[Rfam]
RNA sequence: CGCCUCGCUCCGGGGUGCGCGCGCAGCGCUGAGAGGGUGACCCACCCAACCCGAGAACUUGAUCCGGUUCGUACCGGCGGAAGAAGAGCGCUAGACCCACCC
Numbered sequence: 001c002g003c004c005u006c007g008c009u010c011c012g013g014g015g016u017g018c019g020c021g022c023g024c025a026g027c028g029c030u031g032a033g034a035g036g037g038u039g040a041c042c043c044a045c046c047c048a049a050c051c052c053g054a055g056a057a058c059u060u061g062a063u064c065c066g067g068u069u070c071g072u073a074c075c076g077g078c079g080g081a082a083g084a085a086g087a088g089c090g091c092u093a094g095a096c097c098c099a100c101c102c
Base pairs, nucleotide, nucleotide: 006090007089008088009087010086011053012052013051014050017029018028019027020026036046037045038044039043058083059082060081064077065076066075067074
RNA: TPP riboswitch aptamer (THI element)